A member of the RNA family "Small nucleolar RNA SNORD58" from Galemys pyrenaicus, 66 nucleotides long. Rfam 15.1 lists 2,484 matches to the family in 680 species. By type it is a C/D-box small nucleolar RNA. Rfam describes the family as follows. snoRNA U58 is found in introns 1, 3 and 6 of the ribosomal protein RPL17 gene in humans. It scores 74 bits against the family's covariance model. Clan: SNORD58 clan.

RNA sequence: CUGUGAUGAUGACAUUACUUAGGACACCUUUGGAUUAAUCAUGAAAAGAACACUACUCUGAGCAGC
Numbered sequence: 001c002u003g004u005g006a007u008g009a010u011g012a013c014a015u016u017a018c019u020u021a022g023g024a025c026a027c028c029u030u031u032g033g034a035u036u037a038a039u040c041a042u043g044a045a046a047a048g049a050a051c052a053c054u055a056c057u058c059u060g061a062g063c064a065g066c
Stems, first nucleotide, its partner, number of pairs: 001065004